Rhizobiales sRNA Atu_C8: a 121-nucleotide RNA from Aquibium oceanicum.

RNA sequence: CAUGACGACAGGGAUCAUUCUCGUAGUAGGCGCGCGCAUGGGCAAGGCGGUGUAACCGCCGGGCGACAGCACCCCAUGCGCGACAGACAGGCUCCUCCGGGGGCCUUUUUUAUUGCUCGAA
Numbered sequence: 001c002a003u004g005a006c007g008a009c010a011g012g013g014a015u016c017a018u019u020c021u022c023g024u025a026g027u028a029g030g031c032g033c034g035c036g037c038a039u040g041g042g043c044a045a046g047g048c049g050g051u052g053u054a055a056c057c058g059c060c061g062g063g064c065g066a067c068a069g070c071a072c073c074c075c076a077u078g079c080g081c082g083a084c085a086g087a088c089a090g091g092c093u094c095c096u097c098c099g100g101g102g103g104c105c106u107u108u109u110u111u112a113u114u115g116c117u118c119g120a121a
Stems, first nucleotide, its partner, number of pairs: 009026001029117004033082010046060005063070002087107001089106007